[Rfam]
RNA sequence: GAAUAGCCUUGUUAGGUGAGGCUACUGUAUAAGAGAUAUGCUGCUGCCCAGAAACAUCCAAAGAUGCCAAUGGGUCAACAGGAACUUUUGAAUUAAGAAAGUUUUUAAUGUAGCUGGGAUUUCCCUAUGCUAUACAGAGCUAAAACUCGACGAAGAGGAGCAGU
Numbered sequence: 001g002a003a004u005a006g007c008c009u010u011g012u013u014a015g016g017u018g019a020g021g022c023u024a025c026u027g028u029a030u031a032a033g034a035g036a037u038a039u040g041c042u043g044c045u046g047c048c049c050a051g052a053a054a055c056a057u058c059c060a061a062a063g064a065u066g067c068c069a070a071u072g073g074g075u076c077a078a079c080a081g082g083a084a085c086u087u088u089u090g091a092a093u094u095a096a097g098a099a100a101g102u103u104u105u106u107a108a109u110g111u112a113g114c115u116g117g118g119a120u121u122u123c124c125c126u127a128u129g130c131u132a133u134a135c136a137g138a139g140c141u142a143a144a145a146c147u148c149g150a151c152g153a154a155g156a157g158g159a160g161c162a163g164u
Base pairs, nucleotide, nucleotide: 007158008157009156010155011151012150013096015147016146017145020141021140022139025137026136027135028134029133030132032131033130040114041113042112043111044110046075047074048073049072050071055066056065057064058063081105082104083103084102087099088098089097116125117124118123
RNA: M-box riboswitch aptamer (ykoK leader)